[Rfam]
RNA sequence: CCUUUGGCUAGGCUUAUAACCGAAAAGCGAGAAGCCCCCUCGCCUGCCAAAGACUAUUCAGGGGC
Numbered sequence: 001c002c003u004u005u006g007g008c009u010a011g012g013c014u015u016a017u018a019a020c021c022g023a024a025a026a027g028c029g030a031g032a033a034g035c036c037c038c039c040u041c042g043c044c045u046g047c048c049a050a051a052g053a054c055u056a057u058u059c060a061g062g063g064g065c
Stems, first nucleotide, its partner, number of pairs: 002052007011021002027043005034065005
The record is a 65-nucleotide RNA sequence, which matches "int-alpA RNA" in Rfam. Rfam's curators write: Acidobacteria (1 example), Planctomycetes (1 example), Proteobacteria. Rfam 15.1 lists 577 matches to the family in 491 species. Pairs were carried over by alignment from the consensus structure, which is taken from published work.